The family of this 49-nucleotide RNA from Moschus moschiferus is "Norovirus cis-acting replication element (CRE)". For this family Rfam cites "Phylogenetic prediction of cis-acting elements: a cre-like sequence in Norovirus genome?" (Victoria et al., BMC Res Notes, 2009).

RNA sequence: AGUGGCUCCCCUGUCCAUAUUUGGAAUAGUUUAUGGAAAGGGGAGUCUU
Numbered sequence: 001a002g003u004g005g006c007u008c009c010c011c012u013g014u015c016c017a018u019a020u021u022u023g024g025a026a027u028a029g030u031u032u033a034u035g036g037a038a039a040g041g042g043g044a045g046u047c048u049u
Base pairs, nucleotide, nucleotide: 004048005047009042010041011040012039015036016035017034021033023031024030